[Rfam]
RNA sequence: UGGGUCUGUUCUGCCGGUUUAGCAGCCGGUCAUCGGGCUUGAGAACAGUGCUGCAACUACUGCGAUACAAGCAUUACCAAGUGCUUGUUCCACCGGGGCUUUCCCGGUGAAGUCGCGGUGGUCGUGGUUCCACAGGGAACGCGCAAUGAAAGGGAGAUCACUCAUUAUCCUGCUCAUUGUACUGGGAUCGGUGUUUGGAGUAAGUAAAGGUGGCUGGUCAGUUUCCGGCAACCAACUGAUCUUCAACGUUGUACUCCAGAACAAGUAAGCUACUGGCCGCUCUUUGAGCGGCCUUUU
Numbered sequence: 001u002g003g004g005u006c007u008g009u010u011c012u013g014c015c016g017g018u019u020u021a022g023c024a025g026c027c028g029g030u031c032a033u034c035g036g037g038c039u040u041g042a043g044a045a046c047a048g049u050g051c052u053g054c055a056a057c058u059a060c061u062g063c064g065a066u067a068c069a070a071g072c073a074u075u076a077c078c079a080a081g082u083g084c085u086u087g088u089u090c091c092a093c094c095g096g097g098g099c100u101u102u103c104c105c106g107g108u109g110a111a112g113u114c115g116c117g118g119u120g121g122u123c124g125u126g127g128u129u130c131c132a133c134a135g136g137g138a139a140c141g142c143g144c145a146a147u148g149a150a151a152g153g154g155a156g157a158u159c160a161c162u163c164a165u166u167a168u169c170c171u172g173c174u175c176a177u178u179g180u181a182c183u184g185g186g187a188u189c190g191g192u193g194u195u196u197g198g199a200g201u202a203a204g205u206a207a208a209g210g211u212g213g214c215u216g217g218u219c220a221g222u223u224u225c226c227g228g229c230a231a232c233c234a235a236c237u238g239a240u241c242u243u244c245a246a247c248g249u250u251g252u253a254c255u256c257c258a259g260a261a262c263a264a265g266u267a268a269g270c271u272a273c274u275g276g277c278c279g280c281u282c283u284u285u286g287a288g289c290g291g292c293c294u295u296u297u
Base pairs, nucleotide, nucleotide: 007047008046009045010044011043012042014029015028016027017026030037031036060186061185068087069086070085071084072083073082074081090121091120092119093118094117095116097114099112100111101110102109124142125141126140128138129137130136143180144179145178146177147176148175149174154171156169157168158167160165189265192263193262194261195260210226212224213223242253272297275293276292277291278290279289280288281287282286
A member of the RNA family "ryfA RNA" from Serratia fonticola, 297 nucleotides long.
This family consists of a number of bacterial RNA genes of 305 bases in length.
NCBI's taxonomy places the organism under Bacteria, Pseudomonadota, Gammaproteobacteria, Enterobacterales, Serratia.
Rfam classes the family as a small RNA.